RNA: TPP riboswitch aptamer (THI element)
RNA sequence: GGAGACGACGCGGGGUGCCGGAGACCACGGCUGAGAUGAGACCCGUCGAACCUGAUCUAGUUCGGACUAGCGAAGGGACGUCAUGCACGACGACG
Numbered sequence: 001g002g003a004g005a006c007g008a009c010g011c012g013g014g015g016u017g018c019c020g021g022a023g024a025c026c027a028c029g030g031c032u033g034a035g036a037u038g039a040g041a042c043c044c045g046u047c048g049a050a051c052c053u054g055a056u057c058u059a060g061u062u063c064g065g066a067c068u069a070g071c072g073a074a075g076g077g078a079c080g081u082c083a084u085g086c087a088c089g090a091c092g093a094c095g
Base pairs, nucleotide, nucleotide: 007082008081009080010079011045012044013043014042016039017031018030019029020028051076052075053074057070058069059068060067